[Rfam]
RNA sequence: UUCUACAACUAUUGAUUGGUCUGCAGCUCUUCUUAGUAAUUGUGGCAUUCCACUGUGGGAAAGAAACUGUUACACAAUUGAACACUUCUUAGCAAAACAGAAAGUAGGCAUAUGUGUGAAGUAUAGAA
Numbered sequence: 001u002u003c004u005a006c007a008a009c010u011a012u013u014g015a016u017u018g019g020u021c022u023g024c025a026g027c028u029c030u031u032c033u034u035a036g037u038a039a040u041u042g043u044g045g046c047a048u049u050c051c052a053c054u055g056u057g058g059g060a061a062a063g064a065a066a067c068u069g070u071u072a073c074a075c076a077a078u079u080g081a082a083c084a085c086u087u088c089u090u091a092g093c094a095a096a097a098c099a100g101a102a103a104g105u106a107g108g109c110a111u112a113u114g115u116g117u118g119a120a121g122u123a124u125a126g127a128a
Stems, first nucleotide, its partner, number of pairs: 003058004021045006028038001072117005085108003088104003
Dot-bracket structure: ..((((..............((((((.(.........).)))))).........)))).............(((((........((((((...........))).)))....)))))...........

The record is a 128-nucleotide RNA sequence from Oryctolagus cuniculus, which matches "Small nucleolar RNA SNORA41" in Rfam. For this family Rfam cites "RNomics: an experimental approach that identifies 201 candidates for novel, small, non-messenger RNAs in mouse" (Huttenhofer et al., EMBO J, 2001). Gene Ontology terms of the family: nucleolus and RNA processing. Rfam classes the family as an H/ACA-box small nucleolar RNA. About the family: ACA41 is a member of the H/ACA class of snoRNA that guide the sites of modification of uridines to pseudouridines.